[Rfam]
RNA: ffh sRNA
RNA sequence: GAGGCAGGGGGGUUAACAUCCGGCAGCGCGUUGCGCCCCCGGGUGCGUUUGUG
Numbered sequence: 001g002a003g004g005c006a007g008g009g010g011g012g013u014u015a016a017c018a019u020c021c022g023g024c025a026g027c028g029c030g031u032u033g034c035g036c037c038c039c040c041g042g043g044u045g046c047g048u049u050u051g052u053g
Stems, first nucleotide, its partner, number of pairs: 017045007026036004